A member of the RNA family "Small nucleolar RNA SNORA23" from Hipposideros armiger, 177 nucleotides long. By type it is an H/ACA-box small nucleolar RNA. Rfam's curators write: The members of this family belong to the H/ACA class of snoRNAs which are thought to guide the sites of modification of uridines to pseudouridines. This family includes human snoRNA ACA23 (SNORA23) and mouse snoMBI-1. On this family, see Huttenhofer et al., EMBO J 2001: "RNomics: an experimental approach that identifies 201 candidates for novel, small, non-messenger RNAs in mouse". It scores 156 bits against the family's covariance model. The family has 9 seed sequences and 1,092 matches in Rfam 15.1. The family's consensus secondary structure was predicted with RNAalifold. Its family is annotated with RNA processing and nucleolus in the Gene Ontology.

[Rfam]
RNA sequence: GCUAUAAUGUGUGCAUAUUUUUCAUCUGUGUCUAGUAGCAGUAUGUGUCUGUUUUGCAUUCAGAUCUUGCUAUCCACACAAACAUGCAGCCAAAGAGUAAGUUGGGAUCAUAGUACUGGUCUAGUGUCUUAAUGGACAUAAUCUACCACUGGUCAGCCUCCAAAUUCCCACACACAG
Numbered sequence: 001g002c003u004a005u006a007a008u009g010u011g012u013g014c015a016u017a018u019u020u021u022u023c024a025u026c027u028g029u030g031u032c033u034a035g036u037a038g039c040a041g042u043a044u045g046u047g048u049c050u051g052u053u054u055u056g057c058a059u060u061c062a063g064a065u066c067u068u069g070c071u072a073u074c075c076a077c078a079c080a081a082a083c084a085u086g087c088a089g090c091c092a093a094a095g096a097g098u099a100a101g102u103u104g105g106g107a108u109c110a111u112a113g114u115a116c117u118g119g120u121c122u123a124g125u126g127u128c129u130u131a132a133u134g135g136a137c138a139u140a141a142u143c144u145a146c147c148a149c150u151g152g153u154c155a156g157c158c159u160c161c162a163a164a165u166u167c168c169c170a171c172a173c174a175c176a177g
Base pairs, nucleotide, nucleotide: 013087014086015085016084029080030079031078033076035074036072037071038070039069040068041067043065044064046062047061050058051057052056103170104169105168106167107166116156117155118154119153120152121151123150124149125148126147129140131139